[Rfam]
RNA sequence: UGGGAUCCAGAUUCCAUAAUGUCAUCCCAGUGCUUGACACUGGGAUCCAGAAAAAAUUACAAGUAAACUGAGCUUAUGCUAAAUUCAAUGAGAUUAAAUGAAAAACUUGAUUCCAGCAUCAAGUGCUGGAAUGACACCUUACCUGAACAGAUA
Numbered sequence: 001u002g003g004g005a006u007c008c009a010g011a012u013u014c015c016a017u018a019a020u021g022u023c024a025u026c027c028c029a030g031u032g033c034u035u036g037a038c039a040c041u042g043g044g045a046u047c048c049a050g051a052a053a054a055a056a057u058u059a060c061a062a063g064u065a066a067a068c069u070g071a072g073c074u075u076a077u078g079c080u081a082a083a084u085u086c087a088a089u090g091a092g093a094u095u096a097a098a099u100g101a102a103a104a105a106c107u108u109g110a111u112u113c114c115a116g117c118a119u120c121a122a123g124u125g126c127u128g129g130a131a132u133g134a135c136a137c138c139u140u141a142c143c144u145g146a147a148c149a150g151a152u153a
Stems, first nucleotide, its partner, number of pairs: 012147003020136006027129011040116008049107002